[Rfam]
RNA sequence: CUAGUCUUUCACAGAAUGAUCCCAAUUGUUAAUUCUUAGUUAUAGCAGAAAAUUAACAAAAAG
Numbered sequence: 001c002u003a004g005u006c007u008u009u010c011a012c013a014g015a016a017u018g019a020u021c022c023c024a025a026u027u028g029u030u031a032a033u034u035c036u037u038a039g040u041u042a043u044a045g046c047a048g049a050a051a052a053u054u055a056a057c058a059a060a061a062a063g
Stems, first nucleotide, its partner, number of pairs: 007044001009042001011040002027058002030055005036050002
The family of this 63-nucleotide sequence from Dendryphion nanum is "Coronavirus 3' UTR pseudoknot". Its Rfam clan is "Coronavirus 3' UTR". Rfam's curators write: Coronaviruses are plus-strand RNA viruses with ~30kb genomes. The 3' UTR region of coronavirus genomes contains a conserved ~55nt pseudoknot structure which has been shown to be necessary for viral genome replication. NCBI's taxonomy places the organism under Eukaryota, saccharomyceta, Pezizomycotina, leotiomyceta, Dendryphion. Gene Ontology term of the family: viral genome replication. For this family Rfam cites "A phylogenetically conserved hairpin-type 3' untranslated region pseudoknot functions in coronavirus RNA replication" (Williams et al., J Virol, 1999).